[Rfam]
RNA sequence: GCAUCACAUCCAUCACCACGGAUCGUCGGGCACGUACCUGCCCGUGAAGGAGAACACCG
Numbered sequence: 001g002c003a004u005c006a007c008a009u010c011c012a013u014c015a016c017c018a019c020g021g022a023u024c025g026u027c028g029g030g031c032a033c034g035u036a037c038c039u040g041c042c043c044g045u046g047a048a049g050g051a052g053a054a055c056a057c058c059g
Stems, first nucleotide, its partner, number of pairs: 009051003013047003027044006
This 59-nucleotide sequence from Clavibacter sepedonicus belongs to the Rfam family "msiK RNA". The source organism's lineage runs through Bacteria, Bacillati, Actinomycetota, Microbacteriaceae and Clavibacter.